Rfam assigns this 96-nucleotide sequence from Bisgaardia hudsonensis to the family "TPP riboswitch aptamer (THI element)". A search with the family's covariance model found it, with a score of 71 bits. The family's consensus secondary structure is taken from published work. Lineage of the source: Bacteria > Pseudomonadati > Pseudomonadota > Gammaproteobacteria > Bisgaardia.

[Rfam]
RNA sequence: GCCUAUUAGUCGGGGUGCUAAUAAUUUGUUAGCUGAGAUUACACCCGUGAACCUGAUACAGUUAAUACUGACGUAGGAAACUAAUUUUUUAUCCCU
Number, nucleotide and partner (000 for none) at each position: 001g000002c000003c000004u000005a000006u084007u083008a082009g081010u080011c047012g046013g045014g044015g000016u041017g033018c032019u031020a030021a029022u000023a000024a000025u000026u000027u000028g000029u021030u020031a019032g018033c017034u000035g000036a000037g000038a000039u000040u000041a016042c000043a000044c014045c013046c012047g011048u000049g000050a000051a000052c077053c076054u075055g074056a000057u000058a000059c070060a069061g068062u000063u000064a000065a000066u000067a000068c061069u060070g059071a000072c000073g000074u055075a054076g053077g052078a000079a000080a010081c009082u008083a007084a006085u000086u000087u000088u000089u000090u000091a000092u000093c000094c000095c000096u000